RNA sequence: CCGAAUGAUUUCAGUGGGAGAGAUCCGGUAAAACCGGACGCCGAAGGAGAAAACUUCUUAGAUCGCUCAUUUAGGAAGGGAAACUCUCAGGCAAAUGUACUGCUGAAAGACGGGGCUCUGGAGAGUUUCUCGAACGAGAACACCAAAGGGGAAGCCGAAAGGCGAAUCUCUCAGGUUAAAGGACAGAGGA
Numbered sequence: 001c002c003g004a005a006u007g008a009u010u011u012c013a014g015u016g017g018g019a020g021a022g023a024u025c026c027g028g029u030a031a032a033a034c035c036g037g038a039c040g041c042c043g044a045a046g047g048a049g050a051a052a053a054c055u056u057c058u059u060a061g062a063u064c065g066c067u068c069a070u071u072u073a074g075g076a077a078g079g080g081a082a083a084c085u086c087u088c089a090g091g092c093a094a095a096u097g098u099a100c101u102g103c104u105g106a107a108a109g110a111c112g113g114g115g116c117u118c119u120g121g122a123g124a125g126u127u128u129c130u131c132g133a134a135c136g137a138g139a140a141c142a143c144c145a146a147a148g149g150g151g152a153a154g155c156c157g158a159a160a161g162g163c164g165a166a167u168c169u170c171u172c173a174g175g176u177u178a179a180a181g182g183a184c185a186g187a188g189g190a
Stems, first nucleotide, its partner, number of pairs: 001113003010107008022039001024038006040092003046088001047086003054078010116188005125141001127140004142176003148172001150169003